[Rfam]
Source information:
The family of this 98-nucleotide RNA sequence from Salarias fasciatus is "Vault RNA". The literature on the family includes a 2009 paper in Mol Biol Evol by Stadler et al., "Evolution of Vault RNAs". The match comes from Rfam's covariance-model search (60 bits).
RNA sequence: GCACCGGUUUAGCUCAGUGGUUACUUCUCGCUUUACCCGUGUCUACCCUGCGGACCGCGGACUAAGGGGUUCAACCACGGGCGCUGUCCGGUGCUUUU
Numbered sequence: 001g002c003a004c005c006g007g008u009u010u011a012g013c014u015c016a017g018u019g020g021u022u023a024c025u026u027c028u029c030g031c032u033u034u035a036c037c038c039g040u041g042u043c044u045a046c047c048c049u050g051c052g053g054a055c056c057g058c059g060g061a062c063u064a065a066g067g068g069g070u071u072c073a074a075c076c077a078c079g080g081g082c083g084c085u086g087u088c089c090g091g092u093g094c095u096u097u098u
Base pairs, nucleotide, nucleotide: 002093003092004091005090006089007088012082013081014080015079017078018077019076020075026074